[Rfam]
RNA sequence: GUUUGAAUGAUGAUUAUAUUAAAAUGUCGGAUACCCCUUCACUCUAAUUAUGAGUGAGAAUAAUAGUCUGACAAAC
Numbered sequence: 001g002u003u004u005g006a007a008u009g010a011u012g013a014u015u016a017u018a019u020u021a022a023a024a025u026g027u028c029g030g031a032u033a034c035c036c037c038u039u040c041a042c043u044c045u046a047a048u049u050a051u052g053a054g055u056g057a058g059a060a061u062a063a064u065a066g067u068c069u070g071a072c073a074a075a076c
Stems, first nucleotide, its partner, number of pairs: 001076005
RNA: Small nucleolar RNA SNORD101